About this RNA
This 56-nucleotide RNA sequence from Dissostichus mawsoni belongs to the Rfam family "Antizyme RNA frameshifting stimulation element". Rfam classes the family as a frameshift element. Pairs were carried over by alignment from the consensus structure, which is taken from published work. A reference for the family is Ivanov et al. (2004), "Identification of a new antizyme mRNA +1 frameshifting stimulatory pseudoknot in a subset of diverse invertebrates and its apparent absence in intermediate species", J Mol Biol. About the family: This family represents a structural element which is found in antizyme mRNA and is known to promote frameshifting. Taxonomically the source falls in Dissostichus (Eukaryota, Euteleostomi, Ctenosquamata, Acanthomorphata).
Nucleotides: 056
Stems, first nucleotide, its partner, number of pairs: 007043005013037005025056006
Number, partner (000 for none) and nucleotide at each position: 001000u002000g003000a004000u005000g006000c007043c008042c009041c010040u011039c012000a013037c014036c015035c016034a017033c018000a019000a020000u021000u022000a023000a024000a025056g026055a027054u028053c029052c030051c031000g032000g033017g034016u035015g036014g037013g038000c039011g040010a041009g042008g043007g044000a045000c046000u047000a048000c049000g050000a051030g052029g053028g054027a055026u056025c